The record is a 91-nucleotide RNA sequence from Hornefia porci, which matches "skipping-rope RNA" in Rfam.

RNA sequence: CAGCUUAGAGGUUGAAAAGUAUCCGUCUCCAACGCGCCACCACUUGGUGGGUCGAGAAAUGCGGGCGACACAGACGGUCCCGCCUAAGCUG
Numbered sequence: 001c002a003g004c005u006u007a008g009a010g011g012u013u014g015a016a017a018a019g020u021a022u023c024c025g026u027c028u029c030c031a032a033c034g035c036g037c038c039a040c041c042a043c044u045u046g047g048u049g050g051g052u053c054g055a056g057a058a059a060u061g062c063g064g065g066c067g068a069c070a071c072a073g074a075c076g077g078u079c080c081c082g083c084c085u086a087a088g089c090u091g
Stems, first nucleotide, its partner, number of pairs: 001091008011033004023077005035056001037050005061083005